[Rfam]
RNA: MISL RNA
RNA sequence: GGAUAAUCCCAGGCGACUGGGGAAAAGCCAGGCCAGGCUGAUUGGUCCGGCUCCUGUGAAACCGGGUUUUAAUCCGGCGGAAAGGCAGAAUUCACCGGUUGUUCGGGCGAUGUUCGCGCAUCGCCGAAUGCGAAUGAGCAACCAGGCGGUCAGGGACGAUGAGAAACCGUUCCGAACCGAGUCAACUAGUUCAGGCAGGUUUCGAGCCUGGAUGAAUCGCAGUCACCCCCAGGGUGGACAGUUGCUACUGCGAAUCAGCACGGUGCGAACGACUCUGGCGGAAACCCUUCGGGGCGCCGCCCAAAGAAAAACGCCGAAAGGCGGACAAAAGGAGCGAACGCAUCGGGAAGACCACUGAAACUGGGCAGGUUUCGUGAAAAACUUCCGGAGGCCGGCGAUGUUAAAAACGACACCGCUGGACUGUGAUGAAAAGGCAGCUUGAAAGUGAAGAGGCGAGACCCGUGGCUUCGGCGAACGCACUGUCAAAAGCAGUGGCUGACCGCAGGCCAAGUGGUUAAGACGCGAUGAUAAUCGCAGGCGUGUCUUGACCUGGUCCGUAAGCUGGUGGCGCAACCAUCAGCCGAAGCGGGCUGAAAAGCCUCACUUGAAAUUCAGCCGUCGCAAGAUGCUGAACGGCCCUGCUACGAGGCCGAGAACUCCGCUUGCCGUGGAGAAUAGCGUCGGGAAACCGGCAGCCCCGCAAGGGCGCGCCAAAUGUCGGCCCGGGAAAGAGAGUGUGGCGAGCUCC
Dot-bracket structure: .......(((((....)))))....((((.((((((.....)))))).)))).........((((((....))))))...................(((((((....(((((.[[[[[))))).....]]]]]...)))))))...((((..(((((.....[[[[[.)))))..)))).......(.((((((((..]]]]]..)))))))).)..[[[[[.((((.....))))...((((((..]]]]]........................(((((...............)))))..........((((....))))......................(((((...((..(((.........))).))......)))))............((((......)))).....................))))))...(((....((((............((((((......((((((.....)))))).....))).)))........((((((((((..............))))))))))....((((((..((((((((.....))))))))....)))))).......)))).)))....((((((.(((....)))))))))(((((..[[[[...)))))....((((((.....))))))..]]]].........((((((((.((....))..))......))))))...........(((.........))).